This 110-nucleotide RNA from Aliivibrio fischeri belongs to the Rfam family "Gammaprotebacteria rimP leader". The base pairs follow the family's consensus structure, which is taken from published work. Its family is annotated with regulation of gene expression in the Gene Ontology. Rfam's curators put it in the seed alignment. A reference for the family is Naville and Gautheret (2010), "Premature terminator analysis sheds light on a hidden world of bacterial transcriptional attenuation", Genome Biol. The source organism's lineage runs through Bacteria, Pseudomonadota, Vibrionales, Aliivibrio and Aliivibrio fischeri.

RNA sequence: GUCACGCAAGUGGCAUUCAGGGUCCAGCAGUAUUAAACCCCGCAAUUACGGGGUUUUUUGCUAUCUGAAACAGACUGUUUUUUAAGAAUUGGGCCUUGAGCCCUUUUUUU
Numbered sequence: 001g002u003c004a005c006g007c008a009a010g011u012g013g014c015a016u017u018c019a020g021g022g023u024c025c026a027g028c029a030g031u032a033u034u035a036a037a038c039c040c041c042g043c044a045a046u047u048a049c050g051g052g053g054u055u056u057u058u059u060g061c062u063a064u065c066u067g068a069a070a071c072a073g074a075c076u077g078u079u080u081u082u083u084a085a086g087a088a089u090u091g092g093g094c095c096u097u098g099a100g101c102c103c104u105u106u107u108u109u110u
Base pairs, nucleotide, nucleotide: 035056036055037054038053039052040051041050042049091103092102093101094100